RNA sequence: GCCUUGCGGGAUGAUGGCAUGAUCACGUAUCUCCUUGCUGGUCUUGGCCCUAACUAUGAUCCCUUCGUCACCUUGAUGACUAUCAAGAGUGAAGCCCUCACGCUUGAUGAUGUGUUUGCACAUCUAAUGGUGUUUGAAGC
Number, nucleotide and partner (000 for none) at each position: 001g000002c000003c000004u139005u138006g000007c136008g135009g000010g000011a000012u000013g000014a000015u000016g000017g000018c000019a000020u000021g000022a000023u000024c000025a000026c000027g000028u000029a000030u000031c000032u000033c000034c000035u000036u000037g000038c000039u000040g000041g000042u000043c000044u000045u000046g000047g000048c000049c000050c000051u000052a000053a000054c000055u000056a000057u000058g000059a000060u000061c000062c000063c000064u000065u000066c000067g000068u000069c000070a000071c000072c000073u000074u000075g000076a000077u000078g000079a000080c000081u000082a000083u000084c000085a000086a000087g000088a000089g108090u107091g000092a105093a104094g103095c000096c000097c000098u000099c000100a000101c000102g000103c094104u093105u092106g000107a090108u089109g000110a000111u000112g000113u000114g000115u000116u000117u000118g000119c000120a000121c000122a000123u000124c000125u000126a000127a000128u000129g000130g000131u000132g000133u000134u000135u008136g007137a000138a005139g004140c000